Background: mir-275 microRNA precursor family: a 93-nucleotide sequence from Cephus cinctus. On this family, see Liu et al., BMC Genomics 2010: "MicroRNAs of Bombyx mori identified by Solexa sequencing". The family's consensus secondary structure was predicted with RNAalifold.
[Rfam]
RNA sequence: AUGCCGUUUGCAACGCGCGCUACUCGGGUACUUCAGGCUGUGCUAUUCCUAUAAUCAGUCAGGUACCAGAAGUAGCGCGCGCUGCUGAAGGGC
Number, nucleotide and partner (000 for none) at each position: 001a000002u000003g000004c000005c000006g000007u000008u000009u000010g085011c084012a083013a000014c081015g000016c079017g078018c077019g076020c075021u074022a073023c000024u000025c000026g000027g000028g000029u000030a064031c063032u000033u062034c000035a000036g060037g059038c058039u057040g000041u000042g000043c000044u000045a000046u000047u000048c000049c000050u000051a000052u000053a000054a000055u000056c000057a039058g038059u037060c036061a000062g033063g031064u030065a000066c000067c000068a000069g000070a000071a000072g000073u022074a021075g020076c019077g018078c017079g016080c000081g014082c000083u012084g011085c010086u000087g000088a000089a000090g000091g000092g000093c000